[Rfam]
RNA sequence: UGUCAAGCAUUUUUGACGUCGUUUCGGCGAACGGAUUUCUUUUGCCUUGGAAAAGGUGAAGAAAAUG
Numbered sequence: 001u002g003u004c005a006a007g008c009a010u011u012u013u014u015g016a017c018g019u020c021g022u023u024u025c026g027g028c029g030a031a032c033g034g035a036u037u038u039c040u041u042u043u044g045c046c047u048u049g050g051a052a053a054a055g056g057u058g059a060a061g062a063a064a065a066u067g
Stems, first nucleotide, its partner, number of pairs: 010063005017058004022054003029047001032044004
A member of the RNA family "S-element" from Ensifer meliloti, 67 nucleotides long. It is annotated as a cis-regulatory element. For this family Rfam cites "Two discrete elements are required for the replication of a repABC plasmid: an antisense RNA and a stem-loop structure" (Venkova-Canova et al., Mol Microbiol, 2004).